[Rfam]
RNA sequence: GCCCGAUGAAGAAGAAUUCCCAAAAGAUAGGAAGUGCCGUAUGACACUUUAAACGCAGAGGCGGACUG
Numbered sequence: 001g002c003c004c005g006a007u008g009a010a011g012a013a014g015a016a017u018u019c020c021c022a023a024a025a026g027a028u029a030g031g032a033a034g035u036g037c038c039g040u041a042u043g044a045c046a047c048u049u050u051a052a053a054c055g056c057a058g059a060g061g062c063g064g065a066c067u068g
Base pairs, nucleotide, nucleotide: 014062031050032049033048034047035046036045
The family of this 68-nucleotide RNA from Brassica oleracea is "Small nucleolar RNA U49". The family is grouped with related families in Rfam's "SNORD49 clan". Its family is annotated with nucleolus and RNA processing in the Gene Ontology. The family's RNA type in Rfam is C/D-box small nucleolar RNA. NCBI's taxonomy places the organism under Eukaryota, Tracheophyta, eudicotyledons, Brassica, Brassica oleracea. The family has 5 seed sequences and 340 matches in Rfam 15.1. The literature on the family includes a 2001 paper in RNA by Brown et al., "Multiple snoRNA gene clusters from Arabidopsis".